[Rfam]
Rfam assigns this 187-nucleotide RNA sequence from Molossus molossus to the family "U2 spliceosomal RNA". On this family, see Zwieb, Nucleic Acids Res 1997: "The uRNA database".

RNA sequence: ACCACUUCUUGGCCUUUUGGCUAAGAUCAAGUGUAGUGUCUGUUAUCAGUUCAAUAUCUGACAUGCCCUCUAUCCGAGGACAAUGUAUUAAAUGGAUUUGGGGAGCAGGGCGAUGGAAUAGGAGCUUGCUCUGUCCACUCCACCAUCGACCCGGUUUUGCAGUCCCUCCGGGGACAGUGCAUAAAAA
Numbered sequence: 001a002c003c004a005c006u007u008c009u010u011g012g013c014c015u016u017u018u019g020g021c022u023a024a025g026a027u028c029a030a031g032u033g034u035a036g037u038g039u040c041u042g043u044u045a046u047c048a049g050u051u052c053a054a055u056a057u058c059u060g061a062c063a064u065g066c067c068c069u070c071u072a073u074c075c076g077a078g079g080a081c082a083a084u085g086u087a088u089u090a091a092a093u094g095g096a097u098u099u100g101g102g103g104a105g106c107a108g109g110g111c112g113a114u115g116g117a118a119u120a121g122g123a124g125c126u127u128g129c130u131c132u133g134u135c136c137a138c139u140c141c142a143c144c145a146u147c148g149a150c151c152c153g154g155u156u157u158u159g160c161a162g163u164c165c166c167u168c169c170g171g172g173g174a175c176a177g178u179g180c181a182u183a184a185a186a187a
Stems, first nucleotide, its partner, number of pairs: 007026003011022004044063001046061004065081001067079004109141002112138001115135002121132004144179003148175001150172005
The organism belongs to Molossus, within Eukaryota. Gene Ontology terms of the family: pre-mRNA branch point binding, mRNA branch site recognition and U2 snRNP.